RNA sequence: GGAAGGCAUUCGUAUCCGGUGGUGCGGCUGAGCUUCAAACUCAGUUGGUGCGGUCAGCCCGCGCCAGGUAGGUUCGACUCCUGCUGCCUUCC
Numbered sequence: 001g002g003a004a005g006g007c008a009u010u011c012g013u014a015u016c017c018g019g020u021g022g023u024g025c026g027g028c029u030g031a032g033c034u035u036c037a038a039a040c041u042c043a044g045u046u047g048g049u050g051c052g053g054u055c056a057g058c059c060c061g062c063g064c065c066a067g068g069u070a071g072g073u074u075c076g077a078c079u080c081c082u083g084c085u086g087c088c089u090u091c092c
Base pairs, nucleotide, nucleotide: 001092002091003090004089005088006087007086008085011026012025013024014023015022016021027045028044029043030042031041032040047065048064049063050062051061069083070082071081072080